A member of the RNA family "L31-Actinobacteria ribosomal protein leader" from Acidipropionibacterium jensenii, 49 nucleotides long.
RNA sequence: CCGCUGCCGGUUCACGCCCCGGAGAUCUGCUCCUCGGCGACCCGGCACC
Numbered sequence: 001c002c003g004c005u006g007c008c009g010g011u012u013c014a015c016g017c018c019c020c021g022g023a024g025a026u027c028u029g030c031u032c033c034u035c036g037g038c039g040a041c042c043c044g045g046c047a048c049c
Stems, first nucleotide, its partner, number of pairs: 003049001005047001007045004015039004021033003
About this RNA: Taxonomically the source falls in Acidipropionibacterium (Bacteria, Actinomycetota, Actinomycetes, Propionibacteriaceae).